[Rfam]
RNA: mir-363 microRNA precursor family
Organism: Ameiurus melas
RNA sequence: GCUGUUUUCGGGUGGAUGACUUUGCAAUUUUAGGGAUACUCGAAAUAUUCUUUGAAAAAAAAUUGCACGGUAUCCAUCUGUAAUCCGCC
Numbered sequence: 001g002c003u004g005u006u007u008u009c010g011g012g013u014g015g016a017u018g019a020c021u022u023u024g025c026a027a028u029u030u031u032a033g034g035g036a037u038a039c040u041c042g043a044a045a046u047a048u049u050c051u052u053u054g055a056a057a058a059a060a061a062a063u064u065g066c067a068c069g070g071u072a073u074c075c076a077u078c079u080g081u082a083a084u085c086c087g088c089c
Stems, first nucleotide, its partner, number of pairs: 009080009019071002023067009